[Rfam]
RNA: Bacterial RNase P class A
RNA sequence: AGAGUAGGCGCAGGUGGUUACGGACGAAAGUCUGAGGAAAGUCCGGGCUCCCCAAAGACCAAACUUGCUGGGUAACGCCCAGUGCGGGCGACCGUGAGGAAAGUGCCACAGAAACAUACCGCCGAUGGAGUCUCAGACUCACAGGUAAGGUUGCAAGGGUGCGGUAAGAGCGCACCAGCAGCGUCGAGAGGCGCUGGCUCGGUAAACCCCGGUUGGGAGCAAGGUCGAAGGAGCAACGGUUGGUCUUUUCCCGGCUCCGGGUAGAAACGGUUAAUCCGGUUCUGCGAAACCCGCUAGAGGUGUCUGGCAACAGGCAUCCCAGAUAGAUAACUGCCCUUUCAGCAGUUCUCUGUUGAAAGAACAGAACCCGGCUUAUGUCCGGCUCUUCCC
Numbered sequence: 001a002g003a004g005u006a007g008g009c010g011c012a013g014g015u016g017g018u019u020a021c022g023g024a025c026g027a028a029a030g031u032c033u034g035a036g037g038a039a040a041g042u043c044c045g046g047g048c049u050c051c052c053c054a055a056a057g058a059c060c061a062a063a064c065u066u067g068c069u070g071g072g073u074a075a076c077g078c079c080c081a082g083u084g085c086g087g088g089c090g091a092c093c094g095u096g097a098g099g100a101a102a103g104u105g106c107c108a109c110a111g112a113a114a115c116a117u118a119c120c121g122c123c124g125a126u127g128g129a130g131u132c133u134c135a136g137a138c139u140c141a142c143a144g145g146u147a148a149g150g151u152u153g154c155a156a157g158g159g160u161g162c163g164g165u166a167a168g169a170g171c172g173c174a175c176c177a178g179c180a181g182c183g184u185c186g187a188g189a190g191g192c193g194c195u196g197g198c199u200c201g202g203u204a205a206a207c208c209c210c211g212g213u214u215g216g217g218a219g220c221a222a223g224g225u226c227g228a229a230g231g232a233g234c235a236a237c238g239g240u241u242g243g244u245c246u247u248u249u250c251c252c253g254g255c256u257c258c259g260g261g262u263a264g265a266a267a268c269g270g271u272u273a274a275u276c277c278g279g280u281u282c283u284g285c286g287a288a289a290c291c292c293g294c295u296a297g298a299g300g301u302g303u304c305u306g307g308c309a310a311c312a313g314g315c316a317u318c319c320c321a322g323a324u325a326g327a328u329a330a331c332u333g334c335c336c337u338u339u340c341a342g343c344a345g346u347u348c349u350c351u352g353u354u355g356a357a358a359g360a361a362c363a364g365a366a367c368c369c370g371g372c373u374u375a376u377g378u379c380c381g382g383c384u385c386u387u388c389c390c
Base pairs, nucleotide, nucleotide: 001386002385003384004383005382007380008379010378011377012376013335014334015333016332017331018330019329021034022033023032024031025030039374040373041372043371044370045369046368047367048219049218050217051216062214063213064212066211067210068082069081070080071079072078083097084095085094086093087092098209099208103207104206105203106202107201119150120149121146122145123144126141127140128139158176159175160174161173162172163171178198179196180195181194182193183192184191185190223292224291232283233282235280237278238277239276299318300317301316302315303314304313305312306311